[Rfam]
RNA sequence: UGAGAGUUUCAGGCCAUAGCAGAAGUGCUCAUGGCGCAGUCCUGUCAGAUUCCAACAAAUCUAUGAAUUCUGCU
Number, nucleotide and partner (000 for none) at each position: 001u000002g000003a000004g000005a000006g000007u000008u000009u000010c000011a000012g000013g042014c039015c000016a000017u000018a074019g073020c072021a071022g070023a069024a068025g037026u036027g035028c000029u000030c000031a000032u000033g000034g000035c027036g026037c025038a000039g014040u000041c000042c013043u000044g000045u000046c000047a062048g061049a060050u059051u058052c000053c000054a000055a000056c000057a000058a051059a050060u049061c048062u047063a000064u000065g000066a000067a000068u024069u023070c022071u021072g020073c019074u018
RNA: Mammalian CPEB3 ribozyme
Organism: Crocodylus porosus